[Rfam]
RNA sequence: AGACAGUGGAGCCCGGAAACCACUUAAAUAAACGGGGCGAAACCGAAAAGCCACAUGAGUAGGAAAUCA
Numbered sequence: 001a002g003a004c005a006g007u008g009g010a011g012c013c014c015g016g017a018a019a020c021c022a023c024u025u026a027a028a029u030a031a032a033c034g035g036g037g038c039g040a041a042a043c044c045g046a047a048a049a050g051c052c053a054c055a056u057g058a059g060u061a062g063g064a065a066a067u068c069a
Stems, first nucleotide, its partner, number of pairs: 006023004036052003043063002

The record is a 69-nucleotide RNA sequence from a Prolixibacteraceae bacterium, which matches "DUF805 RNA" in Rfam. The base pairs follow the family's consensus structure, which is taken from published work. It scores 79 bits against the family's covariance model. Rfam classes the family as a cis-regulatory element.